Rfam assigns this 151-nucleotide sequence from Kineococcus xinjiangensis to the family "c-di-AMP riboswitch aptamer (ydaO/yuaA leader)". The base pairs follow the family's consensus structure.
[Rfam]
Nucleotides: 151
Stems, first nucleotide, its partner, number of pairs: 013137002018031003032134006042073001074119003082094004097113004
Number, partner (000 for none) and nucleotide at each position: 001000u002000g003000c004000c005000g006000g007000g008000g009000g010000g011000a012000a013137c014136c015000g016000a017000u018031u019030c020029c021000c022000a023000c024000g025000g026000c027000a028000g029020g030019g031018g032134g033133c034132g035131g036130g037129g038000g039000a040000a041000c042073c043000a044000c045000g046000u047000u048000u049000u050000c051000g052000g053000g054000c055000g056000c057000c058000g059000g060000c061000g062000a063000c064000g065000g066000c067000g068000c069000c070000c071000u072000c073042g074119g075118g076117g077000u078000g079000a080000a081000g082094c083093u084092c085091a086000c087000g088000a089000c090000g091085u092084g093083a094082g095000c096000c097113g098112g099111g100110u101000g102000a103000a104000c105000c106000u107000u108000c109000c110100a111099c112098c113097c114000g115000a116000a117076c118075c119074c120000g121000a122000c123000a124000g125000c126000u127000c128000a129037c130036c131035u132034c133033g134032c135000a136014g137013g138000c139000g140000u141000c142000g143000a144000g145000a146000g147000g148000u149000g150000u151000u